[Rfam]
RNA sequence: UAUAAAACCUAAUAGUAUUUUGAACCAGAUGAAAAACUAGGGGAGACACCCUAGGCUGGAAUACUUCUCAAGGGACAGAGUUCCGUUAGCAGAGAUGCGACAGGUGAAGUCCUUACGAACUGUGGCAACACAGCGUAGUCGGAGGCGAGCAUCGCCAAGGGAGAAGUAGGUGCAGACUUAUCAGUAUCAAAAACAACACCGAACUACUCGGGACAAAUCGGGAGACCACACUGUUGGGCGUACCUAGGUAUUCUACGGGGUGACACCUGUGAGGACAAUGCCUAAAUGUCAAGAAAGUCCUUGAGAGCGUAAUUGAGGCUCGGCAACGAGCGUAUAAGAGUAGAAGGUGGUCCAAGUAGCCCAAACUUACGCUAUGAUUAACAAAUUAACUUUUGUUCUAGUGCGAUAGAAAAAAGAGCAAUUACUGCAUACGAGAGUAUGAAAAUGUCUAUUGCGGGUGAAAGGUGCGACGAAGGAUGUCGUAUGGGUUCUGGAACUUCGGUUCUGGCUAAACGUGGAGGUGCCGGCGGGUACCAAGGGCGGUUAGUCCCCAUUGUGUGAAUAUUGGUUGGGGUAAGAUCUGUAUAAGGAGGACUUGCAAAAUACUUUUCUUAUUAU
Numbered sequence: 001u002a003u004a005a006a007a008c009c010u011a012a013u014a015g016u017a018u019u020u021u022g023a024a025c026c027a028g029a030u031g032a033a034a035a036a037c038u039a040g041g042g043g044a045g046a047c048a049c050c051c052u053a054g055g056c057u058g059g060a061a062u063a064c065u066u067c068u069c070a071a072g073g074g075a076c077a078g079a080g081u082u083c084c085g086u087u088a089g090c091a092g093a094g095a096u097g098c099g100a101c102a103g104g105u106g107a108a109g110u111c112c113u114u115a116c117g118a119a120c121u122g123u124g125g126c127a128a129c130a131c132a133g134c135g136u137a138g139u140c141g142g143a144g145g146c147g148a149g150c151a152u153c154g155c156c157a158a159g160g161g162a163g164a165a166g167u168a169g170g171u172g173c174a175g176a177c178u179u180a181u182c183a184g185u186a187u188c189a190a191a192a193a194c195a196a197c198a199c200c201g202a203a204c205u206a207c208u209c210g211g212g213a214c215a216a217a218u219c220g221g222g223a224g225a226c227c228a229c230a231c232u233g234u235u236g237g238g239c240g241u242a243c244c245u246a247g248g249u250a251u252u253c254u255a256c257g258g259g260g261u262g263a264c265a266c267c268u269g270u271g272a273g274g275a276c277a278a279u280g281c282c283u284a285a286a287u288g289u290c291a292a293g294a295a296a297g298u299c300c301u302u303g304a305g306a307g308c309g310u311a312a313u314u315g316a317g318g319c320u321c322g323g324c325a326a327c328g329a330g331c332g333u334a335u336a337a338g339a340g341u342a343g344a345a346g347g348u349g350g351u352c353c354a355a356g357u358a359g360c361c362c363a364a365a366c367u368u369a370c371g372c373u374a375u376g377a378u379u380a381a382c383a384a385a386u387u388a389a390c391u392u393u394u395g396u397u398c399u400a401g402u403g404c405g406a407u408a409g410a411a412a413a414a415a416g417a418g419c420a421a422u423u424a425c426u427g428c429a430u431a432c433g434a435g436a437g438u439a440u441g442a443a444a445a446u447g448u449c450u451a452u453u454g455c456g457g458g459u460g461a462a463a464g465g466u467g468c469g470a471c472g473a474a475g476g477a478u479g480u481c482g483u484a485u486g487g488g489u490u491c492u493g494g495a496a497c498u499u500c501g502g503u504u505c506u507g508g509c510u511a512a513a514c515g516u517g518g519a520g521g522u523g524c525c526g527g528c529g530g531g532u533a534c535c536a537a538g539g540g541c542g543g544u545u546a547g548u549c550c551c552c553a554u555u556g557u558g559u560g561a562a563u564a565u566u567g568g569u570u571g572g573g574g575u576a577a578g579a580u581c582u583g584u585a586u587a588a589g590g591a592g593g594a595c596u597u598g599c600a601a602a603a604u605a606c607u608u609u610u611c612u613u614a615u616u617a618u
Stems, first nucleotide, its partner, number of pairs: 007615001012610001014608002019603003025059004037054005062168005077113002082104002086100002089098003115139002117134001120133005144156005175599001178578002182574001188568001190566001193565001197349004204343006210301005227238001229236002245284005252275003256269003261291004307372005318331005353464001359459004447541004467557001485553003488505001494504002507550002510547001512545003516542001520535003524531002586598004
RNA: ROOL RNA